[Rfam]
This 425-nucleotide RNA sequence from Dongia mobilis belongs to the Rfam family "Bacterial RNase P class A".
RNA sequence: CCAGAUGGCCGGAUGGCCGCUCCCGCUCCGGCGGGGGAGGAAAGUCCGGGCUCCACGGAAAAACGGUGCCGGAUAACGUCCGGCGGGUGUCAAGCCCAGGGACAGUGCCACAGAGAGCAGACCGCCCGGCUUUCGAGCCGGGCAAGGGUGAAAGGGUGCGGUAAGAGCGCACCGCGCGACCGGCAACGGAAGCGGCACGGCAAACCCCACCGGGAGCAAGACCAGAUAGGAGGGCACGUGCGGCGCAAGCCGUGCAGGCGUUUUCCGCGCCGAUCCUCGGGUAGGUCGCGUGAGGCGUUCGGCAACGAACGUCCCAGAUGAAUGGCCAUCCAGGGGCCGGACGCGCGUGAGUGAUGGCGGGCAACCGCUAUAUCGUGCGCGGCAGCGGCCCCGGACAGAACCCGGCUUACAGGCCGUCUGGCGCU
Number, nucleotide and partner (000 for none) at each position: 001c421002c420003a419004g418005a417006u416007g415008g414009c413010c412011g410012g330013a329014u328015g327016g326017c325018c324019g000020c037021u036022c035023c034024c033025g032026c031027u000028c000029c000030g000031g026032c025033g024034g023035g022036g021037g020038a000039g000040g000041a000042a408043a407044g406045u000046c405047c404048g403049g402050g401051c216052u215053c214054c213055a000056c000057g000058g000059a000060a000061a264062a263063a000064c212065g211066g210067u209068g208069c083070c082071g081072g080073a079074u000075a000076a000077c000078g000079u073080c072081c071082g070083g069084c099085g097086g096087g095088u094089g000090u000091c000092a000093a000094g088095c087096c086097c085098a000099g084100g207101g206102a000103c000104a000105g205106u204107g201108c200109c199110a000111c000112a000113g000114a000115g000116a000117g000118c000119a000120g000121a000122c147123c146124g143125c142126c141127c140128g139129g138130c137131u136132u000133u000134c000135g000136a131137g130138c129139c128140g127141g126142g125143c124144a000145a000146g123147g122148g000149u000150g000151a000152a000153a000154g000155g173156g172157u171158g170159c169160g168161g000162u000163a000164a000165g000166a000167g000168c160169g159170c158171a157172c156173c155174g196175c194176g193177c192178g000179a000180c189181c188182g187183g000184c000185a000186a000187c182188g181189g180190a000191a000192g177193c176194g175195g000196c174197a000198c000199g109200g108201c107202a000203a000204a106205c105206c101207c100208c068209a067210c066211c065212g064213g054214g053215a052216g051217c000218a000219a000220g287221a286222c285223c284224a000225g000226a000227u000228a000229g000230g278231a277232g276233g275234g274235c000236a000237c000238g000239u000240g000241c000242g000243g000244c000245g000246c000247a000248a000249g000250c000251c000252g000253u000254g000255c000256a000257g271258g270259c269260g268261u267262u000263u062264u061265c000266c000267g261268c260269g259270c258271c257272g000273a000274u234275c233276c232277u231278c230279g000280g000281g000282u000283a000284g223285g222286u221287c220288g000289c000290g000291u000292g000293a000294g313295g312296c311297g310298u309299u308300c307301g306302g000303c000304a000305a000306c301307g300308a299309a298310c297311g296312u295313c294314c000315c000316a000317g000318a000319u000320g000321a000322a000323u000324g018325g017326c016327c015328a014329u013330c012331c000332a000333g000334g000335g000336g000337c000338c000339g000340g000341a000342c000343g000344c000345g000346c000347g000348u000349g000350a000351g000352u000353g000354a000355u000356g000357g000358c000359g000360g000361g000362c000363a000364a000365c000366c000367g000368c000369u000370a000371u000372a000373u000374c000375g000376u000377g000378c000379g000380c000381g000382g000383c000384a000385g000386c000387g000388g000389c000390c000391c000392c000393g000394g000395a000396c000397a000398g000399a000400a000401c050402c049403c048404g047405g046406c044407u043408u042409a000410c011411a000412g010413g009414c008415c007416g006417u005418c004419u003420g002421g001422c000423g000424c000425u000

Taxonomically the source falls in Dongia (Bacteria, Pseudomonadati, Pseudomonadota, Alphaproteobacteria). The match comes from Rfam's covariance-model search (282 bits). By type it is a ribozyme.